[Rfam]
RNA sequence: GCUUCCUGAGCCGGAACGAAAAGUGCGGAGGGUUUUCCCGAGGUGCUUUUGGCUUGUGGUUGUGAUGUUGUGUUUGCUAAUUGUCCGGAACAACAGAUGAGGCAGCCUUGCUGCUUUGUACUUCCGACGCAUUCCCCUGUCUGUCUAUAGUGAUUUUAUAUAGCACCGCGUUUGCGGUGCUUUUUUUA
Numbered sequence: 001g002c003u004u005c006c007u008g009a010g011c012c013g014g015a016a017c018g019a020a021a022a023g024u025g026c027g028g029a030g031g032g033u034u035u036u037c038c039c040g041a042g043g044u045g046c047u048u049u050u051g052g053c054u055u056g057u058g059g060u061u062g063u064g065a066u067g068u069u070g071u072g073u074u075u076g077c078u079a080a081u082u083g084u085c086c087g088g089a090a091c092a093a094c095a096g097a098u099g100a101g102g103c104a105g106c107c108u109u110g111c112u113g114c115u116u117u118g119u120a121c122u123u124c125c126g127a128c129g130c131a132u133u134c135c136c137c138u139g140u141c142u143g144u145c146u147a148u149a150g151u152g153a154u155u156u157u158a159u160a161u162a163g164c165a166c167c168g169c170g171u172u173u174g175c176g177g178u179g180c181u182u183u184u185u186u187u188a
Base pairs, nucleotide, nucleotide: 009054010053011052012051015050016049021048022047023046024045025044026043027038028037029036030035081100082099083098084097085096087094101115102114103113104112105111106110129159131157162181163180164179165178166177167176168175169174